[Rfam]
RNA sequence: UGACUGCGAUGAAGUGAAAGGUUGCUGACACACCCGGCCGCUUUGCCAUGGCGAGUGUGUGGGAAAUUUUCACGGAGAAUGUCUAUUCAUGAAAAUAGGCGA
Dot-bracket structure: .............(((.((((...((..................................))....)))))))......((((((((......)))))))).

This 102-nucleotide RNA sequence from Bacillus sp. cl95 belongs to the Rfam family "S10-Clostridia ribosomal protein leader". For this family Rfam cites "Discovery of 20 novel ribosomal leader candidates in bacteria and archaea" (Eckert and Weinberg, BMC Microbiol, 2020).